[Rfam]
Nucleotides: 123
Base pairs, nucleotide, nucleotide: 002058003057004056005055006054007053008052009050013046014045015044017042018041020039021038022037024032025031026030077114078113079112080111082104083103087100088099089098
Number, partner (000 for none) and nucleotide at each position: 001000c002058g003057u004056c005055c006054g007053a008052u009050g010000c011000c012000a013046c014045g015044u016000a017042g018041c019000c020039g021038g022037u023000g024032g025031c026030c027000a028000a029000u030026g031025g032024c033000g034000u035000u036000g037022a038021c039020c040000g041018g042017c043000g044015a045014c046013g047000g048000u049000a050009u051000g052008a053007u054006u055005g056004g057003a058002c059000g060000g061000a062000a063000u064000c065000a066000a067000a068000u069000u070000c071000a072000u073000a074000u075000u076000c077114c078113g079112c080111c081000u082104g083103g084000u085000u086000u087100c088099u089098g090000u091000u092000g093000a094000u095000c096000c097000a098089c099088g100087g101000a102000g103083c104082c105000g106000u107000u108000u109000u110000c111080g112079g113078c114077g115000a116000u117000u118000a119000c120000a121000u122000u123000u